Rfam assigns this 108-nucleotide RNA from Lutibacter sp. Hel_I_33_5 to the family "6S-Flavo RNA". The match comes from Rfam's covariance-model search (103 bits). Rfam classes the family as a small RNA. NCBI's taxonomy places the organism under Bacteria, Bacteroidota, Flavobacteriia, Flavobacteriales, Lutibacter.
[Rfam]
RNA sequence: ACUCAACGCUAUUCAAUUAAAAAGGAUGAGUCUUGAUUAGGAAAGCAUGCCGCCAUAGAGUGGAUCCUUGAUCAAUCAGUUAGUCCUAAACUUGUUUUUUUGGAGUUU
Numbered sequence: 001a002c003u004c005a006a007c008g009c010u011a012u013u014c015a016a017u018u019a020a021a022a023a024g025g026a027u028g029a030g031u032c033u034u035g036a037u038u039a040g041g042a043a044a045g046c047a048u049g050c051c052g053c054c055a056u057a058g059a060g061u062g063g064a065u066c067c068u069u070g071a072u073c074a075a076u077c078a079g080u081u082a083g084u085c086c087u088a089a090a091c092u093u094g095u096u097u098u099u100u101u102g103g104a105g106u107u108u
Stems, first nucleotide, its partner, number of pairs: 023087005034078005043069003050063004